[Rfam]
RNA sequence: GAUUAGGUUGGUGCAAAAGUAAUUGCAGUUUUUGCCGUUACUUUUAAUGGCAAAAACUGCAAUUACUUUUGCAUCAACCUAAGU
Number, nucleotide and partner (000 for none) at each position: 001g084002a000003u082004u081005a080006g079007g078008u077009u076010g075011g074012u073013g072014c071015a070016a069017a068018a067019g066020u065021a064022a063023u062024u061025g060026c059027a058028g057029u056030u055031u054032u053033u052034g051035c050036c049037g048038u047039u046040a045041c000042u000043u000044u000045u040046a039047a038048u037049g036050g035051c034052a033053a032054a031055a030056a029057c028058u027059g026060c025061a024062a023063u022064u021065a020066c019067u018068u017069u016070u015071g014072c013073a012074u011075c010076a009077a008078c007079c006080u005081a004082a003083g000084u001
Shown here is an 84-nucleotide RNA sequence from Chlorocebus sabaeus, a member of the family "mir-548 microRNA precursor family". A search with the family's covariance model found it, with a score of 91 bits. Gene Ontology terms of the family: RISC complex and miRNA-mediated post-transcriptional gene silencing. The organism belongs to Chlorocebus, within Eukaryota. The family's consensus secondary structure was predicted with WAR. On this family, see Jima et al., Blood 2010: "Deep sequencing of the small RNA transcriptome of normal and malignant human B cells identifies hundreds of novel microRNAs".